[Rfam]
MIR396 microRNA precursor family: a 178-nucleotide sequence from Jatropha curcas. The family's consensus secondary structure was predicted with WAR.
RNA sequence: UGUCAUGUUUUUCCACAGCUUUCUUGAACUUCUUUUUUCUUUUCUUUAAUUUUUUCUUUCAAGAAUCUCCCUCAUUUUAAUAUGUAUGAAAGAGAUUCUUAAAUGGAAGAAUUAAAGAGGAGGAAAUGUAUACGUGUAUUGUAUAGGAGUUCAAGAAAGCUGUGGGAGAACAUGGCAG
Numbered sequence: 001u002g003u004c005a006u007g008u009u010u011u012u013c014c015a016c017a018g019c020u021u022u023c024u025u026g027a028a029c030u031u032c033u034u035u036u037u038u039c040u041u042u043u044c045u046u047u048a049a050u051u052u053u054u055u056c057u058u059u060c061a062a063g064a065a066u067c068u069c070c071c072u073c074a075u076u077u078u079a080a081u082a083u084g085u086a087u088g089a090a091a092g093a094g095a096u097u098c099u100u101a102a103a104u105g106g107a108a109g110a111a112u113u114a115a116a117g118a119g120g121a122g123g124a125a126a127u128g129u130a131u132a133c134g135u136g137u138a139u140u141g142u143a144u145a146g147g148a149g150u151u152c153a154a155g156a157a158a159g160c161u162g163u164g165g166g167a168g169a170a171c172a173u174g175g176c177a178g
Stems, first nucleotide, its partner, number of pairs: 003175005013165003017161006024154004029149005

It scores 85 bits against the family's covariance model.